[Rfam]
RNA: MIR6274 microRNA precursor family
RNA sequence: GAAUAGCACUUUUUGUUAUUUUCAGCCAAUGACAUAAUGAUAUGUGAAAUAAUUUGUUCACGUGUCAUUGUGUUAUUGGCUGAAAAGAGCAAAACAGUAUUAUCU
Numbered sequence: 001g002a003a004u005a006g007c008a009c010u011u012u013u014u015g016u017u018a019u020u021u022u023c024a025g026c027c028a029a030u031g032a033c034a035u036a037a038u039g040a041u042a043u044g045u046g047a048a049a050u051a052a053u054u055u056g057u058u059c060a061c062g063u064g065u066c067a068u069u070g071u072g073u074u075a076u077u078g079g080c081u082g083a084a085a086a087g088a089g090c091a092a093a094a095c096a097g098u099a100u101u102a103u104c105u
Stems, first nucleotide, its partner, number of pairs: 003103003011094007019086001021084028